[Rfam]
RNA sequence: AGUGGCAAGAUCAAGGCCAUAGCAGAAGCGCUUACAGCACAGCCUGUCAGAUUCCAACAAAUUUAUGAAUUCUGCU
Numbered sequence: 001a002g003u004g005g006c007a008a009g010a011u012c013a014a015g016g017c018c019a020u021a022g023c024a025g026a027a028g029c030g031c032u033u034a035c036a037g038c039a040c041a042g043c044c045u046g047u048c049a050g051a052u053u054c055c056a057a058c059a060a061a062u063u064u065a066u067g068a069a070u071u072c073u074g075c076u
Base pairs, nucleotide, nucleotide: 015044016043017042021076022075023074024073025072026071027070028040030038049064050063051062052061053060
The record is a 76-nucleotide sequence from Alligator mississippiensis, which matches "Mammalian CPEB3 ribozyme" in Rfam.
Taxonomically the source falls in Alligator (Eukaryota, Sarcopterygii, Amniota, Sauria).
Pairs were carried over by alignment from the consensus structure, which is taken from published work.
It scores 40 bits against the family's covariance model.